About this RNA: A member of the RNA family "Small nucleolar RNA snoR100" from Rhododendron simsii, 108 nucleotides long. Gene Ontology terms of the family: RNA processing and nucleolus.
[Rfam]
RNA sequence: CAAUGAAGGAAGCAUGGUAAUAUGCACAUAAAUUGAAUUGCGUCUCUAGGCUUGCCUUUUCUGAUGCCAUUUGGCUUUGAUUUGGAGACAUGGUUCCGCAGCAAAACA
Numbered sequence: 001c002a003a004u005g006a007a008g009g010a011a012g013c014a015u016g017g018u019a020a021u022a023u024g025c026a027c028a029u030a031a032a033u034u035g036a037a038u039u040g041c042g043u044c045u046c047u048a049g050g051c052u053u054g055c056c057u058u059u060u061c062u063g064a065u066g067c068c069a070u071u072u073g074g075c076u077u078u079g080a081u082u083u084g085g086a087g088a089c090a091u092g093g094u095u096c097c098g099c100a101g102c103a104a105a106a107c108a
Stems, first nucleotide, its partner, number of pairs: 012025004040091001042089003050081001052079001054075003
Source information
The family's RNA type in Rfam is H/ACA-box small nucleolar RNA. The base pairs follow the family's consensus structure, which was predicted with WAR. A reference for the family is Marker et al. (2002), "Experimental RNomics: identification of 140 candidates for small non-messenger RNAs in the plant Arabidopsis thaliana", Curr Biol.